[Rfam]
RNA sequence: UAUCAUGCUUUUCCACAGCUUUCUUGAACUUCUUUCCCUCUGAAUUUUCAUCUCUAGCAAUUGAGUUAUUGAUAUGAGAUAAGAUUAAGCUCUGAAAGUUCAAGAAAGCUGUGGGAAAACAUGGUGA
Numbered sequence: 001u002a003u004c005a006u007g008c009u010u011u012u013c014c015a016c017a018g019c020u021u022u023c024u025u026g027a028a029c030u031u032c033u034u035u036c037c038c039u040c041u042g043a044a045u046u047u048u049c050a051u052c053u054c055u056a057g058c059a060a061u062u063g064a065g066u067u068a069u070u071g072a073u074a075u076g077a078g079a080u081a082a083g084a085u086u087a088a089g090c091u092c093u094g095a096a097a098g099u100u101c102a103a104g105a106a107a108g109c110u111g112u113g114g115g116a117a118a119a120c121a122u123g124g125u126g127a
Stems, first nucleotide, its partner, number of pairs: 003124005013114003017110006024103004029098003033094001
MIR396 microRNA precursor family: a 127-nucleotide RNA from Nicotiana tabacum. A search with the family's covariance model found it, with a score of 88 bits. Rfam links the family to the GO terms miRNA-mediated post-transcriptional gene silencing and RISC complex. NCBI's taxonomy places the organism under Eukaryota, eudicotyledons, Gunneridae, Pentapetalae, Nicotiana.